[Rfam]
RNA sequence: GCUUCAUCGGGAGUUCUCUUCAAGCACUCCAGGAUGCAUCUUUUCGAGAACUUAUCUGAAGUGUUUGGGGGAACUCUCGGUGCCAC
Numbered sequence: 001g002c003u004u005c006a007u008c009g010g011g012a013g014u015u016c017u018c019u020u021c022a023a024g025c026a027c028u029c030c031a032g033g034a035u036g037c038a039u040c041u042u043u044u045c046g047a048g049a050a051c052u053u054a055u056c057u058g059a060a061g062u063g064u065u066u067g068g069g070g071g072a073a074c075u076c077u078c079g080g081u082g083c084c085a086c
Stems, first nucleotide, its partner, number of pairs: 005082005011076010022066007030058004036052001

A member of the RNA family "mir-395 microRNA precursor family" from Aegilops tauschii, 86 nucleotides long. Pairs were carried over by alignment from the consensus structure, which was predicted with PFOLD. Lineage of the source: Eukaryota > Poales > Pooideae > Triticeae > Aegilops tauschii. Gene Ontology terms of the family: miRNA-mediated post-transcriptional gene silencing and RISC complex. It scores 65 bits against the family's covariance model.